A member of the RNA family "mir-7552 microRNA precursor family" from Takifugu flavidus, 63 nucleotides long. Rfam links the family to the GO terms miRNA-mediated post-transcriptional gene silencing and RISC complex. Taxonomically the source falls in Takifugu (Eukaryota, Clupeocephala, Euteleosteomorpha, Eurypterygia).

RNA sequence: UUACAAUUAAAGGAUAUUUCUUGUGAUUGCAAAAACCUCGGAAAUAUCUUCUAAUUGUUCGGU
Numbered sequence: 001u002u003a004c005a006a007u008u009a010a011a012g013g014a015u016a017u018u019u020c021u022u023g024u025g026a027u028u029g030c031a032a033a034a035a036c037c038u039c040g041g042a043a044a045u046a047u048c049u050u051c052u053a054a055u056u057g058u059u060c061g062g063u
Base pairs, nucleotide, nucleotide: 003058004057005056006055007054008053009052012049013048014047015046016045017044018043019042020041021040024035